Annotation: Rfam assigns this 86-nucleotide sequence from Chenopodium quinoa to the family "mir-160 microRNA precursor family". For this family Rfam cites "Prediction of plant microRNA targets" (Rhoades et al., Cell, 2002). The match comes from Rfam's covariance-model search (67 bits).
RNA sequence: CUAUGCCUGGCUCCCUGUAUGCCAUACACAGAGUCCAUCGGAUUAUCGAUGGCCUCCAUGGAUGGCGUAAGAGGAGCCAAGCAUAC
Number, nucleotide and partner (000 for none) at each position: 001c000002u085003a084004u083005g082006c081007c000008u079009g078010g077011c076012u075013c074014c073015c000016u071017g000018u069019a068020u067021g066022c065023c064024a063025u000026a000027c060028a059029c000030a000031g000032a000033g000034u000035c000036c000037a000038u000039c000040g000041g000042a000043u000044u000045a000046u000047c000048g000049a000050u000051g000052g000053c000054c000055u000056c000057c000058a000059u028060g027061g000062a000063u024064g023065g022066c021067g020068u019069a018070a000071g016072a000073g014074g013075a012076g011077c010078c009079a008080a000081g006082c005083a004084u003085a002086c000